Shown here is a 117-nucleotide RNA sequence from Kumtagia ephedrae, a member of the family "TPP riboswitch aptamer (THI element)". The match comes from Rfam's covariance-model search (71 bits). Taxonomically the source falls in Kumtagia (Bacteria, Alphaproteobacteria, Hyphomicrobiales, Phyllobacteriaceae). Rfam links the family to the GO term thiamine pyrophosphate binding. The family's consensus secondary structure is taken from published work.
RNA sequence: GCGCGUUACCUGGGGGGUCCCGACAAGGGGCUGAGAUACUGCUGGCAUUCGCAGCGCAGUGACCCGUUGAACCUGAUCCAGUUCAUACUGGCGUAGGGAUGGUGCAAGCGCUUUGCA
Numbered sequence: 001g002c003g004c005g006u007u008a009c010c011u012g013g014g015g016g017g018u019c020c021c022g023a024c025a026a027g028g029g030g031c032u033g034a035g036a037u038a039c040u041g042c043u044g045g046c047a048u049u050c051g052c053a054g055c056g057c058a059g060u061g062a063c064c065c066g067u068u069g070a071a072c073c074u075g076a077u078c079c080a081g082u083u084c085a086u087a088c089u090g091g092c093g094u095a096g097g098g099a100u101g102g103u104g105c106a107a108g109c110g111c112u113u114u115g116c117a
Base pairs, nucleotide, nucleotide: 007104008103009102010101011066012065013064014063017031018030019029020028021027038060039059040058041057042056072097073096074095075094078091079090080089081088